The record is a 250-nucleotide sequence from Tribolium castaneum, which matches "Arthropod 7SK RNA" in Rfam. By type it is a non-coding RNA gene. On this family, see Gruber et al., Mol Biol Evol 2008: "Arthropod 7SK RNA". The sequence is in the family's curated seed alignment.

RNA sequence: GGAGGUGUGUGUCAGUGAUGGCACAGCUGAACAUUGAUCGCUUUAGUUCAGUAGGCUGAUCUGCUCAGUAACGUGCGGUCACGUGGUCGAUCCAGCAACCAAUGGACUCUGACGAUGCCCUAGUCGCACGUCAGUCAUCCUCUGGUUUCUUGAACGUCCGCCAUUUCCAAAUUUGGGGGGUUACGGAUGGGUUUCAUUUAGAACACCUCCAAUAAUCGGCACUGCAGUUACGUAGUUCGCCAUUUUUUCA
Numbered sequence: 001g002g003a004g005g006u007g008u009g010u011g012u013c014a015g016u017g018a019u020g021g022c023a024c025a026g027c028u029g030a031a032c033a034u035u036g037a038u039c040g041c042u043u044u045a046g047u048u049c050a051g052u053a054g055g056c057u058g059a060u061c062u063g064c065u066c067a068g069u070a071a072c073g074u075g076c077g078g079u080c081a082c083g084u085g086g087u088c089g090a091u092c093c094a095g096c097a098a099c100c101a102a103u104g105g106a107c108u109c110u111g112a113c114g115a116u117g118c119c120c121u122a123g124u125c126g127c128a129c130g131u132c133a134g135u136c137a138u139c140c141u142c143u144g145g146u147u148u149c150u151u152g153a154a155c156g157u158c159c160g161c162c163a164u165u166u167c168c169a170a171a172u173u174u175g176g177g178g179g180g181u182u183a184c185g186g187a188u189g190g191g192u193u194u195c196a197u198u199u200a201g202a203a204c205a206c207c208u209c210c211a212a213u214a215a216u217c218g219g220c221a222c223u224g225c226a227g228u229u230a231c232g233u234a235g236u237u238c239g240c241c242a243u244u245u246u247u248u249c250a
Base pairs, nucleotide, nucleotide: 001210002209003208004207005206006205007204008203015082016081017080018079019078027068028067029066032063033062036061037060038059039058040056041055042054043053218241219240220239221236222235223234224233225232